[Rfam]
This 84-nucleotide sequence belongs to the Rfam family "Small nucleolar RNA R160". Rfam's curators write: snoR160 is a C/D box small nucleolar RNA, which acts as a methylation guide for 25S ribosomal RNA in plants. snoR160 has been alternatively named snoZ270 in rice. Pairs were carried over by alignment from the consensus structure. The match comes from Rfam's covariance-model search (69 bits).

RNA sequence: AGCAAAAUGAUGAAAAAGCUCGAUCUGAAUUCCAAAUGUGGAUUUAAUUUAUCGAGUUAUGGUCUUCAAAGUUCUCUGAUUGCU
Numbered sequence: 001a002g003c004a005a006a007a008u009g010a011u012g013a014a015a016a017a018g019c020u021c022g023a024u025c026u027g028a029a030u031u032c033c034a035a036a037u038g039u040g041g042a043u044u045u046a047a048u049u050u051a052u053c054g055a056g057u058u059a060u061g062g063u064c065u066u067c068a069a070a071g072u073u074c075u076c077u078g079a080u081u082g083c084u
Base pairs, nucleotide, nucleotide: 001084002083003082004081005080